[Rfam]
RNA sequence: AGAAUAUAGGUUUUCCGAGCCUAUUCAUCUAAGGUUUUUGAUUUAACUAUGAUGCGUAGGCCGAUUAGGGUAUAGAAGGAAACAACUAUGCCUCCCUGUUGGAAAGGAAAACAGUUUAAAGCUUU
Numbered sequence: 001a002g003a004a005u006a007u008a009g010g011u012u013u014u015c016c017g018a019g020c021c022u023a024u025u026c027a028u029c030u031a032a033g034g035u036u037u038u039u040g041a042u043u044u045a046a047c048u049a050u051g052a053u054g055c056g057u058a059g060g061c062c063g064a065u066u067a068g069g070g071u072a073u074a075g076a077a078g079g080a081a082a083c084a085a086c087u088a089u090g091c092c093u094c095c096c097u098g099u100u101g102g103a104a105a106g107g108a109a110a111a112c113a114g115u116u117u118a119a120a121g122c123u124u125u
Stems, first nucleotide, its partner, number of pairs: 006116001011111006019061006026054004033048004068093008078083001094102002
The record is a 125-nucleotide sequence from Tepidibacillus fermentans, which matches "Molybdenum/Tungsten riboswitch aptamer (Moco RNA motif)" in Rfam. For this family Rfam cites "in molybdenum cofactor and tungsten cofactor metabolism" (Regulski et al., Mol Microbiol, 2008). It scores 78 bits against the family's covariance model.